[Rfam]
The family of this 61-nucleotide RNA from Pristionchus pacificus is "mir-8364 microRNA precursor family". Taxonomically the source falls in Pristionchus (Eukaryota, Metazoa, Protostomia, Ecdysozoa).

RNA sequence: UCUUCAUUCCUCAUACUCUCUCACCGGGCAGAGUGACGAGAGAGCACGUAGAAUGAAGAGA
Number, nucleotide and partner (000 for none) at each position: 001u059002c058003u057004u056005c055006a054007u053008u000009c000010c000011u000012c048013a000014u046015a000016c044017u043018c000019u041020c040021u039022c038023a000024c000025c000026g000027g000028g000029c000030a000031g000032a000033g000034u000035g000036a000037c000038g022039a021040g020041a019042g000043a017044g016045c000046a014047c000048g012049u000050a000051g000052a000053a007054u006055g005056a004057a003058g002059a001060g000061a000